[Rfam]
Rfam assigns this 93-nucleotide RNA to the family "RNA anti-toxin A". Its family is annotated with mRNA binding and negative regulation of translation in the Gene Ontology. The base pairs follow the family's consensus structure, which was predicted with RNAalifold. The literature on the family includes a 2010 paper in Nucleic Acids Res by Fozo et al., "Abundance of type I toxin-antitoxin systems in bacteria: searches for new candidates and discovery of novel families".
RNA sequence: UAAUUUAUAUAUAGAAAAAGGCAACAUGCGCAAACAUGUUACCCUAAUGAGCCCGUUAAAAAGACGGUGGCUCAGUUUUGAAAUUAUUAUAAA
Numbered sequence: 001u002a003a004u005u006u007a008u009a010u011a012u013a014g015a016a017a018a019a020g021g022c023a024a025c026a027u028g029c030g031c032a033a034a035c036a037u038g039u040u041a042c043c044c045u046a047a048u049g050a051g052c053c054c055g056u057u058a059a060a061a062a063g064a065c066g067g068u069g070g071c072u073c074a075g076u077u078u079u080g081a082a083a084u085u086a087u088u089a090u091a092a093a
Stems, first nucleotide, its partner, number of pairs: 025038004053067005